Rfam assigns this 114-nucleotide RNA from Sinomonas sp. to the family "SAM (S-adenosyl methionine) riboswitch aptamer".
Its Rfam clan is "SAM clan".
Taxonomically the source falls in Sinomonas (Bacteria, Bacillati, Actinomycetota, Micrococcales).
From the family's description: SAM-IV is a mRNA element that regulates gene expression via direct sensing of S-adenosylmethionine (SAM or AdoMet).
Pairs were carried over by alignment from the consensus structure, which is taken from published work.
For this family Rfam cites "The aptamer core of SAM-IV riboswitches mimics the ligand-binding site of SAM-I riboswitches" (Weinberg et al., RNA, 2008).
RNA sequence: GGUCAUGAGUGCCAGCGCUAAGCCCCGGUUUGCUGGCCGGCAACCCUCCCGCUGUUGGCGGGGUGCCCCGGGUGAGGACCCGGACCGGUGAGAUCCGCCGGUCAAGUGCAGCGC
Dot-bracket structure: ((((....(.((((((....((......)).)))))))(((..(((.((.......))..))).))).........))))..((((((((.....))))))))...........
Numbered sequence: 001g002g003u004c005a006u007g008a009g010u011g012c013c014a015g016c017g018c019u020a021a022g023c024c025c026c027g028g029u030u031u032g033c034u035g036g037c038c039g040g041c042a043a044c045c046c047u048c049c050c051g052c053u054g055u056u057g058g059c060g061g062g063g064u065g066c067c068c069c070g071g072g073u074g075a076g077g078a079c080c081c082g083g084a085c086c087g088g089u090g091a092g093a094u095c096c097g098c099c100g101g102u103c104a105a106g107u108g109c110a111g112c113g114c
Stems, first nucleotide, its partner, number of pairs: 001080004009038001011037006021030002039067003044063003048058002083103008